[Rfam]
RNA sequence: UGAUGAUAAAGCCGAACCAAUUGUGAAAUUGGGACGGAAACUCACGGGUCUUUUCUGUAACGGUUUUUCCCUGAUUGGACUCAAAGAUACCCGGACUGCCAUA
Numbered sequence: 001u002g003a004u005g006a007u008a009a010a011g012c013c014g015a016a017c018c019a020a021u022u023g024u025g026a027a028a029u030u031g032g033g034a035c036g037g038a039a040a041c042u043c044a045c046g047g048g049u050c051u052u053u054u055c056u057g058u059a060a061c062g063g064u065u066u067u068u069c070c071c072u073g074a075u076u077g078g079a080c081u082c083a084a085a086g087a088u089a090c091c092c093g094g095a096c097u098g099c100c101a102u103a
Stems, first nucleotide, its partner, number of pairs: 012037002017032006040097001042095002045093003048088006